[Rfam]
Lysine riboswitch aptamer: a 168-nucleotide RNA from Dubosiella newyorkensis. The source organism's lineage runs through Bacteria, Bacillati, Bacillota, Erysipelotrichia and Dubosiella. The base pairs follow the family's consensus structure, which is taken from published work. The match comes from Rfam's covariance-model search (80 bits).
Nucleotides: 168
Base pairs, nucleotide, nucleotide: 007162008161009160010159011158017079018078019077020076021075022074025070033063034062035061036060037059038058083110084109085108086107087106089104090103091102092101093100094099111137112136114134115133116132117131118130119129120128121127139152140151141150142149143148
Number, partner (000 for none) and nucleotide at each position: 001000g002000a003000u004000a005000a006000a007162g008161a009160u010159a011158g012000a013000g014000g015000u016000a017079g018078c019077g020076a021075u022074g023000c024000a025070g026000a027000u028000g029000a030000g031000u032000a033063c034062g035061u036060u037059u038058u039000c040000g041000a042000g043000c044000a045000g046000g047000c048000a049000u050000g051000c052000g053000a054000a055000g056000a057000a058038a059037a060036a061035a062034c063033g064000g065000a066000a067000a068000g069000g070025c071000a072000a073000c074022c075021a076020u077019c078018g079017c080000c081000g082000a083110a084109a085108g086107a087106a088000u089104c090103a091102a092101a093100g094099u095000g096000g097000c098000g099094g100093u101092u102091u103090u104089g105000u106087u107086u108085c109084u110083u111137g112136g113000g114134g115133c116132a117131u118130c119129a120128g121127g122000a123000a124000a125000g126000a127121c128120c129119u130118g131117a132116u133115g134114c135000a136112c137111u138000c139152c140151u141150u142149c143148a144000a145000u146000c147000a148143u149142g150141a151140a152139g153000a154000g155000g156000c157000g158011u159010u160009a161008u162007c163000a164000a165000c166000a167000u168000g